RNA sequence: CGUUCUCGCCCCCACCCGCGGGCCCUGACGCACCUUCCCCGGUGUCAGGUCCCGCGGGUGGAGGCGAGAACG
Numbered sequence: 001c002g003u004u005c006u007c008g009c010c011c012c013c014a015c016c017c018g019c020g021g022g023c024c025c026u027g028a029c030g031c032a033c034c035u036u037c038c039c040c041g042g043u044g045u046c047a048g049g050u051c052c053c054g055c056g057g058g059u060g061g062a063g064g065c066g067a068g069a070a071c072g
Base pairs, nucleotide, nucleotide: 001072002071003070004069005068007066008065010063012061013060014059015058016057017056018055019054020053021052022051024049025048026047027046028045029044030043031042
A member of the RNA family "mraW RNA" from Pseudonocardia endophytica, 72 nucleotides long. NCBI's taxonomy places the organism under Bacteria, Bacillati, Pseudonocardiales, Pseudonocardiaceae, Pseudonocardia. Rfam 15.1 lists 851 matches to the family in 821 species. The family's RNA type in Rfam is cis-regulatory element. The family's consensus secondary structure is taken from published work.